[Rfam]
RNA sequence: CGAUGAGGUAGAGGUGCAUUUAGUAUUAGUAACCCUUUGGAGAAUGACAACGUUGAUAAAGGGUGAAAGGGCUACUUGCCGAAGUGUGAAAAAACGUCAUUUUUUUUACGCUGGUAUGUUCUUGAAUAAGGAAUAUACUGUCAUGCAAACCGAACGUUGGAUUGCAUGAUGCGCUACUGAUCGA
Numbered sequence: 001c002g003a004u005g006a007g008g009u010a011g012a013g014g015u016g017c018a019u020u021u022a023g024u025a026u027u028a029g030u031a032a033c034c035c036u037u038u039g040g041a042g043a044a045u046g047a048c049a050a051c052g053u054u055g056a057u058a059a060a061g062g063g064u065g066a067a068a069g070g071g072c073u074a075c076u077u078g079c080c081g082a083a084g085u086g087u088g089a090a091a092a093a094a095c096g097u098c099a100u101u102u103u104u105u106u107u108a109c110g111c112u113g114g115u116a117u118g119u120u121c122u123u124g125a126a127u128a129a130g131g132a133a134u135a136u137a138c139u140g141u142c143a144u145g146c147a148a149a150c151c152g153a154a155c156g157u158u159g160g161a162u163u164g165c166a167u168g169a170u171g172c173g174c175u176a177c178u179g180a181u182c183g184a
Stems, first nucleotide, its partner, number of pairs: 007178005016079003021074004032064008083112012113139011141169007
Dot-bracket structure: ......(((((....(((..((((.......((((((((.................))))))))......))))..)))...((((((((((((......))))))))))))(((((((((((.....))))))))))).(((((((...............)))))))....)))))......
This 184-nucleotide RNA sequence from Pontibacillus yanchengensis belongs to the Rfam family "Lysine riboswitch aptamer". The match comes from Rfam's covariance-model search (128 bits). Its family is annotated with lysine biosynthetic process in the Gene Ontology.